[Rfam]
RNA sequence: GGAAGUAGCAAAUAUUCAAGUGAGAACCUUGAAGACUGAAGUGGGGAAGGGUUCCAUGGUAACAGCAGUUGGACAUGGGUUAGUCGGUCCUAAGAAAUAGGGAACUUCCGUUUUAAAGAAAUGCUCUUGUUAGCAUCCACCUAUCGAAAGGGAAUGUAGUUAAAAUUCUACAACUGGGAUACAGAUUUUGAACGGCAACGUAUAUGAACUUGGUGACGUCUGCAGGGGCCCCAGGAAGAGUUUUCUUUUCUCCUUAACAAUCUGAAACCCUGGAAGCGAAUUAUUCGGAGAUAGGGUUUAAUGAUUGGUAGAGCUUUACACCUCUGUAAAGUCUGGUGUGUCCUUGAGGAUCCUUGAAAAACCAAGGGAUUGAAAAAGUCUUGUACCCAGCCGUACCAAUAUCCGCAUCAGGUCCCCAAGGUGAUCAGCCUCUGGUCAA
Numbered sequence: 001g002g003a004a005g006u007a008g009c010a011a012a013u014a015u016u017c018a019a020g021u022g023a024g025a026a027c028c029u030u031g032a033a034g035a036c037u038g039a040a041g042u043g044g045g046g047a048a049g050g051g052u053u054c055c056a057u058g059g060u061a062a063c064a065g066c067a068g069u070u071g072g073a074c075a076u077g078g079g080u081u082a083g084u085c086g087g088u089c090c091u092a093a094g095a096a097a098u099a100g101g102g103a104a105c106u107u108c109c110g111u112u113u114u115a116a117a118g119a120a121a122u123g124c125u126c127u128u129g130u131u132a133g134c135a136u137c138c139a140c141c142u143a144u145c146g147a148a149a150g151g152g153a154a155u156g157u158a159g160u161u162a163a164a165a166u167u168c169u170a171c172a173a174c175u176g177g178g179a180u181a182c183a184g185a186u187u188u189u190g191a192a193c194g195g196c197a198a199c200g201u202a203u204a205u206g207a208a209c210u211u212g213g214u215g216a217c218g219u220c221u222g223c224a225g226g227g228g229c230c231c232c233a234g235g236a237a238g239a240g241u242u243u244u245c246u247u248u249u250c251u252c253c254u255u256a257a258c259a260a261u262c263u264g265a266a267a268c269c270c271u272g273g274a275a276g277c278g279a280a281u282u283a284u285u286c287g288g289a290g291a292u293a294g295g296g297u298u299u300a301a302u303g304a305u306u307g308g309u310a311g312a313g314c315u316u317u318a319c320a321c322c323u324c325u326g327u328a329a330a331g332u333c334u335g336g337u338g339u340g341u342c343c344u345u346g347a348g349g350a351u352c353c354u355u356g357a358a359a360a361a362c363c364a365a366g367g368g369a370u371u372g373a374a375a376a377a378g379u380c381u382u383g384u385a386c387c388c389a390g391c392c393g394u395a396c397c398a399a400u401a402u403c404c405g406c407a408u409c410a411g412g413u414c415c416c417c418a419a420g421g422u423g424a425u426c427a428g429c430c431u432c433u434g435g436u437c438a439a
Stems, first nucleotide, its partner, number of pairs: 015033006034437004043417004049397002054078005063071002085393003089151002094145002096112003100109003121136003155172005175389004180385005185379002192201003209366006218351004223346007231336003234254002237251003258307005267297006277287003314331007403412002419431004
Rfam assigns this 439-nucleotide part of an RNA from Puccinia sorghi to the family "Eukaryotic large subunit ribosomal RNA". NCBI's taxonomy places the organism under Eukaryota, Fungi, Pucciniomycotina, Pucciniaceae, Puccinia.